[Rfam]
RNA: c-di-AMP riboswitch aptamer (ydaO/yuaA leader)
RNA sequence: GGAUCACGGCCGCCGAAUCCGCAAGAUGCGGAGCCGGGGACCCACUGGGCCUCGUUCGUCAACCGGACGGCGAAGCCCAUCCCCCAACCGGGGUGAAUCAGCAAUGGCUACGCCCCCCGUAGCCAACGCUGUAGGGCACUUCCACGCCCGAACCCGUCAGCUAACCCGGUAGGCGGCAUGGAAGCGAGGG
Number, nucleotide and partner (000 for none) at each position: 001g000002g000003a000004u000005c000006a000007c000008g000009g000010c000011c175012g174013c173014c172015g000016a000017a000018u032019c031020c030021g029022c028023a000024a000025g000026a000027u000028g022029c021030g020031g019032a018033g170034c169035c168036g167037g166038g165039g000040a000041c000042c000043c090044a000045c000046u000047g000048g000049g000050c000051c000052u000053c000054g000055u000056u000057c000058g000059u000060c000061a000062a000063c000064c000065g000066g000067a000068c000069g000070g000071c000072g000073a000074a000075g000076c000077c000078c000079a000080u000081c000082c000083c000084c000085c000086a000087a000088c000089c000090g043091g155092g154093g153094u000095g000096a000097a000098u000099c131100a130101g129102c128103a000104a000105u000106g000107g000108c000109u000110a000111c000112g000113c000114c000115c000116c000117c000118c000119g000120u000121a000122g000123c000124c000125a000126a000127c000128g102129c101130u100131g099132u000133a000134g149135g148136g147137c146138a000139c000140u000141u000142c000143c000144a000145c000146g137147c136148c135149c134150g000151a000152a000153c093154c092155c091156g000157u000158c000159a000160g000161c000162u000163a000164a000165c038166c037167c036168g035169g034170u033171a000172g014173g013174c012175g011176g000177c000178a000179u000180g000181g000182a000183a000184g000185c000186g000187a000188g000189g000190g000